[Rfam]
RNA sequence: CCAGGGGGCCGGGCAGCCGCGUACUUCGACAAGCUCAGCAUGAGCGGGGAGAAGGCCGAGGAAAGUCCGGGCUCCACGAAACGAGGGUGGCGGGUAACGCCCGCCGGGGGUAACCCCAGGGAAAGUGCCACAGAGAGCAGACCGCCUGCAUCUGCAGGUAAGGGUGAAAGGGUGCGGUAAGAGCGCACCGGGGCCCUGGUAACAGGGCUCGCAUGGCAAACCCCACCCGGAGCAAGACCGAAUAGGGGCGGCGCGUUUCGGUUUCGGCUGGAACAGGCGUGUUUCGCGUCGACCGCCCGGGUUGGUUGCUGGAGCGCCGUGGCAACACGGCGCCGAGAGGAAUGGCUGCCCUUGCGGAUACGGUCUCUCUUCAGGGAUACCGUUCGCAAGACAGAACCCGGCUUACAGGCCCCCUGGCGCA
Numbered sequence: 001c002c003a004g005g006g007g008g009c010c011g012g013g014c015a016g017c018c019g020c021g022u023a024c025u026u027c028g029a030c031a032a033g034c035u036c037a038g039c040a041u042g043a044g045c046g047g048g049g050a051g052a053a054g055g056c057c058g059a060g061g062a063a064a065g066u067c068c069g070g071g072c073u074c075c076a077c078g079a080a081a082c083g084a085g086g087g088u089g090g091c092g093g094g095u096a097a098c099g100c101c102c103g104c105c106g107g108g109g110g111u112a113a114c115c116c117c118a119g120g121g122a123a124a125g126u127g128c129c130a131c132a133g134a135g136a137g138c139a140g141a142c143c144g145c146c147u148g149c150a151u152c153u154g155c156a157g158g159u160a161a162g163g164g165u166g167a168a169a170g171g172g173u174g175c176g177g178u179a180a181g182a183g184c185g186c187a188c189c190g191g192g193g194c195c196c197u198g199g200u201a202a203c204a205g206g207g208c209u210c211g212c213a214u215g216g217c218a219a220a221c222c223c224c225a226c227c228c229g230g231a232g233c234a235a236g237a238c239c240g241a242a243u244a245g246g247g248g249c250g251g252c253g254c255g256u257u258u259c260g261g262u263u264u265c266g267g268c269u270g271g272a273a274c275a276g277g278c279g280u281g282u283u284u285c286g287c288g289u290c291g292a293c294c295g296c297c298c299g300g301g302u303u304g305g306u307u308g309c310u311g312g313a314g315c316g317c318c319g320u321g322g323c324a325a326c327a328c329g330g331c332g333c334c335g336a337g338a339g340g341a342a343u344g345g346c347u348g349c350c351c352u353u354g355c356g357g358a359u360a361c362g363g364u365c366u367c368u369c370u371u372c373a374g375g376g377a378u379a380c381c382g383u384u385c386g387c388a389a390g391a392c393a394g395a396a397c398c399c400g401g402c403u404u405a406c407a408g409g410c411c412c413c414c415u416g417g418c419g420c421a
Stems, first nucleotide, its partner, number of pairs: 001417010011406001012350007020058002024054004063404003067401005072232004081284001083282001085228005090104005105119001106117004120223002125221002127217003142163002144159006171189006190212001191210008236307004246298006276290005314333008
This 421-nucleotide RNA sequence from Novosphingobium flavum belongs to the Rfam family "Bacterial RNase P class A". The base pairs follow the family's consensus structure, which is taken from published work. Taxonomically the source falls in Novosphingobium (Bacteria, Pseudomonadati, Pseudomonadota, Sphingomonadales).